[Rfam]
RNA sequence: AUGGAAGUGAUGAUUAUUUCCCUAGAUGAUCGAAGAUGAUUAUACUAUGCGCUAUUUUUUUUCUCACUCUUGAGAAUCCAAGCCAGAAAUCUGAUCCAU
Numbered sequence: 001a002u003g004g005a006a007g008u009g010a011u012g013a014u015u016a017u018u019u020c021c022c023u024a025g026a027u028g029a030u031c032g033a034a035g036a037u038g039a040u041u042a043u044a045c046u047a048u049g050c051g052c053u054a055u056u057u058u059u060u061u062u063c064u065c066a067c068u069c070u071u072g073a074g075a076a077u078c079c080a081a082g083c084c085a086g087a088a089a090u091c092u093g094a095u096c097c098a099u
Base pairs, nucleotide, nucleotide: 001099002098003097004096005095
Rfam assigns this 99-nucleotide RNA sequence from Artemisia annua to the family "Small nucleolar RNA Z103". The family's consensus secondary structure was predicted with PFOLD.